[Rfam]
RNA sequence: UUGGCGGUGUAGUCCCAGAUCCGCUCGGCGUCGAUCAGCGCCUGCUCACCGAACGCCUCGCCGUCGGCCAGCACACCCAGGUUGACCGGGUCGCCGUAGGCGCCCACGCCGACCUUGUUCACCUUGCCGUGCGCGAUCACGUAGACCUGGUCGGCGAUCGAGCCGAACUCCACGAUCACCUGGCCGGGCUGGUACUCCUGCUGGACGAACUUGUCGGCCAUGUCGGCGAGCACUUCGGGAUCGUCGAACUCGCUGAGCACGGAGAGCUCACGCAGUUCGGCGGGGACGACGCGGACCUGGGCGCCGACGUUGGUGAAGCUGAGCCGGCCGUCGCCGAUCCGGUAGGUCAUCCGCCGGUUCACCCGGAAGGCGCCGCCGGAGACCUGCACCCACGGCAGCUUGCGCAGCAGCCACCGCGAGGUGAUCUCCUGCAUCUGCGGGACCGUCUUGGUGGUGGUGGUCAGGUUCCGGGCCGCCGCCGUGCUGAGACUGCUCUGGCGUUCCCG
Numbered sequence: 001u002u003g004g005c006g007g008u009g010u011a012g013u014c015c016c017a018g019a020u021c022c023g024c025u026c027g028g029c030g031u032c033g034a035u036c037a038g039c040g041c042c043u044g045c046u047c048a049c050c051g052a053a054c055g056c057c058u059c060g061c062c063g064u065c066g067g068c069c070a071g072c073a074c075a076c077c078c079a080g081g082u083u084g085a086c087c088g089g090g091u092c093g094c095c096g097u098a099g100g101c102g103c104c105c106a107c108g109c110c111g112a113c114c115u116u117g118u119u120c121a122c123c124u125u126g127c128c129g130u131g132c133g134c135g136a137u138c139a140c141g142u143a144g145a146c147c148u149g150g151u152c153g154g155c156g157a158u159c160g161a162g163c164c165g166a167a168c169u170c171c172a173c174g175a176u177c178a179c180c181u182g183g184c185c186g187g188g189c190u191g192g193u194a195c196u197c198c199u200g201c202u203g204g205a206c207g208a209a210c211u212u213g214u215c216g217g218c219c220a221u222g223u224c225g226g227c228g229a230g231c232a233c234u235u236c237g238g239g240a241u242c243g244u245c246g247a248a249c250u251c252g253c254u255g256a257g258c259a260c261g262g263a264g265a266g267c268u269c270a271c272g273c274a275g276u277u278c279g280g281c282g283g284g285g286a287c288g289a290c291g292c293g294g295a296c297c298u299g300g301g302c303g304c305c306g307a308c309g310u311u312g313g314u315g316a317a318g319c320u321g322a323g324c325c326g327g328c329c330g331u332c333g334c335c336g337a338u339c340c341g342g343u344a345g346g347u348c349a350u351c352c353g354c355c356g357g358u359u360c361a362c363c364c365g366g367a368a369g370g371c372g373c374c375g376c377c378g379g380a381g382a383c384c385u386g387c388a389c390c391c392a393c394g395g396c397a398g399c400u401u402g403c404g405c406a407g408c409a410g411c412c413a414c415c416g417c418g419a420g421g422u423g424a425u426c427u428c429c430u431g432c433a434u435c436u437g438c439g440g441g442a443c444c445g446u447c448u449u450g451g452u453g454g455u456g457g458u459g460g461u462c463a464g465g466u467u468c469c470g471g472g473c474c475g476c477c478g479c480c481g482u483g484c485u486g487a488g489a490c491u492g493c494u495c496u497g498g499c500g501u502u503c504c505c506g
Base pairs, nucleotide, nucleotide: 006390007389008388009387010386011385012384015381020327021326023324024323025322026321027320028319029318031316032315035313036312037311038310039309040308042306047303049301050300052298057230058229059228060227061226062225063224065111066110067109068108077102083096084095086093119220122217123216129210130209131206134203135202139199141197143196144195149189151187152186153185154184155183159174160173235295236294241289242288243287244286245285250283251282252281253280254279255278256277257276258275262269328342329341330340351379352378353377355375356374357373360372362370363369391431392430394428395427397425399423401421403418404417405416407415437476438475439474440473443470445468447465448464449463450462451461452460478504480500481499482498484497486495487494488493
The family of this 506-nucleotide sequence from Actinoplanes awajinensis is "Saccharopolyspora sRNA 350". The source organism's lineage runs through Bacteria, Micromonosporales, Micromonosporaceae, Actinoplanes and Actinoplanes awajinensis. Rfam links the family to the GO term regulation of secondary metabolite biosynthetic process. The family's RNA type in Rfam is antisense RNA. On this family, see Liu et al., PLoS One 2013: "Prediction and characterization of small non-coding RNAs related to secondary metabolites in Saccharopolyspora erythraea". The family's consensus secondary structure was predicted with RNAfold.